[Rfam]
RNA sequence: ACUCUAGCUGCCAAAGGCGCUUCUCCUUCUGAACAGAGCGCUUUGCUCAGCCAGUGUAG
Numbered sequence: 001a002c003u004c005u006a007g008c009u010g011c012c013a014a015a016g017g018c019g020c021u022u023c024u025c026c027u028u029c030u031g032a033a034c035a036g037a038g039c040g041c042u043u044u045g046c047u048c049a050g051c052c053a054g055u056g057u058a059g
Base pairs, nucleotide, nucleotide: 001057002056004054005053007051008050009049010048014044015043016042017041018040019039020038021037022036024032025031
Description: A member of the RNA family "mir-1251 microRNA precursor family" from Macaca mulatta, 59 nucleotides long. Rfam's curators put it in the seed alignment. The family has 7 seed sequences and 134 matches in Rfam 15.1. NCBI's taxonomy places the organism under Eukaryota, Tetrapoda, Primates, Haplorrhini, Macaca.